RNA: Bacterial RNase P class A
Organism: Sulfurimonas denitrificans
RNA sequence: UAGGUACAACAGAUAGUUACUUGAAUUUAUUUCAAGAGGAAAGUCCGAGCUGCUAUAAGAGAGUGUUCCAUUUAACUAAUGGCCGUAGCAAUGCGAGGGAAAGUGCAACAGAGAGAAGACUUCCGCUUAGCGGUAAAGGUGAAAGGGUGGUGUAAGAGACCACCAGUCUCUAUAGUAAUAUAGAGAGCUUGUAAACCCAACAUGGCAGCAAGAAACAGAUGGUCAGCCUCUUAAAGUAAAACUACAUGUUUUGCUAUGCUACUGUUUCGCUAGAGUUACUAUGUGAAUAGUAAAGUAGAUUAAUACUAUUAAAACAAAACUCGGCUUACGUUGUACCUAUUCA
Dot-bracket structure: ((((((((((.((((((..((((((.....))))))....[[[.[[[[[((((....[....((((((((((.....)))))(((((....)))).)((...(((((............((.((((...))))...)).......((((((.......)))))).(((((((((....)))))))).).)))..))))))))).))))...((((......((..(...........(((((....])))))..)..)).....)))).......(((((((....)))))))...........)))))).........]]]]]]]]..))))))))))....
Numbered sequence: 001u002a003g004g005u006a007c008a009a010c011a012g013a014u015a016g017u018u019a020c021u022u023g024a025a026u027u028u029a030u031u032u033c034a035a036g037a038g039g040a041a042a043g044u045c046c047g048a049g050c051u052g053c054u055a056u057a058a059g060a061g062a063g064u065g066u067u068c069c070a071u072u073u074a075a076c077u078a079a080u081g082g083c084c085g086u087a088g089c090a091a092u093g094c095g096a097g098g099g100a101a102a103g104u105g106c107a108a109c110a111g112a113g114a115g116a117a118g119a120c121u122u123c124c125g126c127u128u129a130g131c132g133g134u135a136a137a138g139g140u141g142a143a144a145g146g147g148u149g150g151u152g153u154a155a156g157a158g159a160c161c162a163c164c165a166g167u168c169u170c171u172a173u174a175g176u177a178a179u180a181u182a183g184a185g186a187g188c189u190u191g192u193a194a195a196c197c198c199a200a201c202a203u204g205g206c207a208g209c210a211a212g213a214a215a216c217a218g219a220u221g222g223u224c225a226g227c228c229u230c231u232u233a234a235a236g237u238a239a240a241a242c243u244a245c246a247u248g249u250u251u252u253g254c255u256a257u258g259c260u261a262c263u264g265u266u267u268c269g270c271u272a273g274a275g276u277u278a279c280u281a282u283g284u285g286a287a288u289a290g291u292a293a294a295g296u297a298g299a300u301u302a303a304u305a306c307u308a309u310u311a312a313a314a315c316a317a318a319a320c321u322c323g324g325c326u327u328a329c330g331u332u333g334u335a336c337c338u339a340u341u342c343a
Stems, first nucleotide, its partner, number of pairs: 001339010012310006020036006041327003045324005050208004058247001063203005068082005083097001084095004098198002103196002105192003120138002123133004146164006166188001167186008212268004222259002226255001238252005276293007